[Rfam]
RNA sequence: CGUAGGGACUUUGUCGUAGGCGAGAUGGCGCCGAAUGCCAUGUAUAUUGGUAGGUACGUUUACAGGCUAUUUAUUGCUAUACCCAAUUCGGGGCAGCGAGUUUCAUCUCUCCUCGACUGAAGCCUCUGCGAAG
Numbered sequence: 001c002g003u004a005g006g007g008a009c010u011u012u013g014u015c016g017u018a019g020g021c022g023a024g025a026u027g028g029c030g031c032c033g034a035a036u037g038c039c040a041u042g043u044a045u046a047u048u049g050g051u052a053g054g055u056a057c058g059u060u061u062a063c064a065g066g067c068u069a070u071u072u073a074u075u076g077c078u079a080u081a082c083c084c085a086a087u088u089c090g091g092g093g094c095a096g097c098g099a100g101u102u103u104c105a106u107c108u109c110u111c112c113u114c115g116a117c118u119g120a121a122g123c124c125u126c127u128g129c130g131a132a133g
Stems, first nucleotide, its partner, number of pairs: 005125003009122004013117004018113003022109007